Shown here is a 98-nucleotide RNA from Methylophaga thiooxydans, a member of the family "t44 RNA". On this family, see Tjaden et al., Nucleic Acids Res 2002: "Transcriptome analysis of Escherichia coli using high-density oligonucleotide probe arrays".
[Rfam]
RNA sequence: CCUUUGAAAGGCAAAAUUCACACAUGUGCCGACACAGGUGUCGGGGUGCUGUUGGGAACACCCAAUCAGUCGACAGCUGGGGUACAUGGAGGAUCAAC
Numbered sequence: 001c002c003u004u005u006g007a008a009a010g011g012c013a014a015a016a017u018u019c020a021c022a023c024a025u026g027u028g029c030c031g032a033c034a035c036a037g038g039u040g041u042c043g044g045g046g047u048g049c050u051g052u053u054g055g056g057a058a059c060a061c062c063c064a065a066u067c068a069g070u071c072g073a074c075a076g077c078u079g080g081g082g083u084a085c086a087u088g089g090a091g092g093a094u095c096a097a098c
Stems, first nucleotide, its partner, number of pairs: 023088008035079003039075005048070004

Lineage of the source: Bacteria > Pseudomonadati > Pseudomonadota > Gammaproteobacteria > Methylophaga thiooxydans. It is annotated as a small RNA.